[Rfam]
RNA sequence: GGCGAUAAACGCGCGUGUAAUAAGCGGCUCGGACCCGGGGGCGGUACCCGGCGGCUCCACCAAAAGCAGGUUCAGGCCUUUUCACCGGGCCUGUUUCUGACGGGGCCGAAAUAGGAUCGACGGACGUGUAAAGACGAGGCCUUCGCCGGAUUGGGCCCCCUCAGAAGCCCAAAUCAACAUAGUUGCAAACGACAACUUUGCUGAAGGUGAACUGAUGGCUGCGUAA
Dot-bracket structure: (((((........(((........((..(((...(((((.......)))))(((((((...........................................)))))))............))).)).......)))......)))))((........))...................................................................
Numbered sequence: 001g002g003c004g005a006u007a008a009a010c011g012c013g014c015g016u017g018u019a020a021u022a023a024g025c026g027g028c029u030c031g032g033a034c035c036c037g038g039g040g041g042c043g044g045u046a047c048c049c050g051g052c053g054g055c056u057c058c059a060c061c062a063a064a065a066g067c068a069g070g071u072u073c074a075g076g077c078c079u080u081u082u083c084a085c086c087g088g089g090c091c092u093g094u095u096u097c098u099g100a101c102g103g104g105g106c107c108g109a110a111a112u113a114g115g116a117u118c119g120a121c122g123g124a125c126g127u128g129u130a131a132a133g134a135c136g137a138g139g140c141c142u143u144c145g146c147c148g149g150a151u152u153g154g155g156c157c158c159c160c161u162c163a164g165a166a167g168c169c170c171a172a173a174u175c176a177a178c179a180u181a182g183u184u185g186c187a188a189a190c191g192a193c194a195a196c197u198u199u200g201c202u203g204a205a206g207g208u209g210a211a212c213u214g215a216u217g218g219c220u221g222c223g224u225a226a
Stems, first nucleotide, its partner, number of pairs: 001147005014136003025126002029123003035051005052108007148159002
A member of the RNA family "permuted transfer-messenger RNA" from Hyphomonas sp. CY54-11-8, 226 nucleotides long. It scores 133 bits against the family's covariance model. It is annotated as a non-coding RNA gene.